[Rfam]
Nucleotides: 061
Stems, first nucleotide, its partner, number of pairs: 007055001009053005017043003021039003027036003
Number, partner (000 for none) and nucleotide at each position: 001000g002000u003000g004000g005000g006000u007055u008000a009053u010052c011051a012050c013049u014000u015000g016000u017043g018042c019041c020000c021039a022038g023037g024000a025000a026000u027036u028035u029034g030000a031000g032000a033000c034029c035028a036027g037023u038022c039021u040000a041019g042018g043017c044000a045000a046000c047000a048000u049013a050012g051011u052010g053009a054000g055007a056000c057000c058000u059000u060000g061000u